[Rfam]
RNA sequence: AUACUUACCUGGUAGGGAAGAUACCAUGAUCACGAAGGUGGUUUUCCCAGGGCGAGGCUUAUCCAUUGCACUCUGGAUGUGCUGACCCCUGAGAUUUCCCCAAAUGUGGGAAACUUGACUAUAUAAUCUGUGGUAGUGGGGGACUGUGUUCUCACUUUCCUCUG
Numbered sequence: 001a002u003a004c005u006u007a008c009c010u011g012g013u014a015g016g017g018a019a020g021a022u023a024c025c026a027u028g029a030u031c032a033c034g035a036a037g038g039u040g041g042u043u044u045u046c047c048c049a050g051g052g053c054g055a056g057g058c059u060u061a062u063c064c065a066u067u068g069c070a071c072u073c074u075g076g077a078u079g080u081g082c083u084g085a086c087c088c089c090u091g092a093g094a095u096u097u098c099c100c101c102a103a104a105u106g107u108g109g110g111a112a113a114c115u116u117g118a119c120u121a122u123a124u125a126a127u128c129u130g131u132g133g134u135a136g137u138g139g140g141g142g143a144c145u146g147u148g149u150u151c152u153c154a155c156u157u158u159c160c161u162c163u164g
Stems, first nucleotide, its partner, number of pairs: 012122004016048002019045003023042005049090004054086001056083003060079005093116002095113003099109002138163006146155003
Dot-bracket structure: ...........((((((.(((.(((((..........)))))))).))((((.(.(((.(((((..........))))).)))..)))))..(((((.((.......)).))).))..))))...............((((((..(((....)))..)))))).
Notes
This 164-nucleotide sequence from Aotus nancymaae belongs to the Rfam family "U1 spliceosomal RNA". The base pairs follow the family's consensus structure, which is taken from published work. The organism belongs to Aotus, within Eukaryota. U1 is a small nuclear RNA (snRNA) component of the spliceosome (involved in pre-mRNA splicing). Its 5' end forms complementary base pairs with the 5' splice junction, thus defining the 5' donor site of an intron.